[Rfam]
Nucleotides: 136
Base pairs, nucleotide, nucleotide: 028062029061030060031059032058033057034043035042036041097121098120099119100118101117102116103115104114105113106112
Number, partner (000 for none) and nucleotide at each position: 001000a002000c003000a004000g005000u006000u007000g008000a009000a010000g011000a012000u013000g014000a015000c016000u017000g018000c019000c020000c021000g022000a023000a024000g025000a026000c027000a028062g029061c030060a031059g032058g033057u034043g035042c036041c037000g038000u039000a040000a041036g042035g043034c044000a045000u046000a047000a048000g049000g050000g051000u052000g053000a054000u055000a056000c057033g058032c059031c060030u061029g062028c063000c064000g065000a066000g067000g068000a069000a070000a071000g072000c073000a074000u075000u076000c077000g078000a079000u080000u081000a082000a083000g084000a085000a086000u087000g088000a089000c090000u091000u092000a093000u094000g095000a096000a097121c098120c099119c100118u101117c102116u103115g104114u105113g106112u107000c108000u109000g110000c111000g112106g113105c114104a115103c116102a117101g118100a119099g120098g121097g122000u123000u124000u125000u126000u127000u128000a129000a130000u131000c132000c133000u134000u135000a136000c
The family of this 136-nucleotide sequence from Clostridiaceae bacterium OM08-6BH is "Ribosomal protein L10 leader".
Rfam describes the family as follows. This family is a putative r-protein leader autoregulatory structure found in B. subtilis and other low-GC Gram-positive bacteria. It is located in the 5' untranslated regions of mRNAs encoding ribosomal proteins L10 and L12 (rplJ-rplL).
The source organism's lineage runs through Bacteria, Bacillati, Bacillota, Clostridia and Clostridiaceae.
The base pairs follow the family's consensus structure, which was predicted with CMfinder.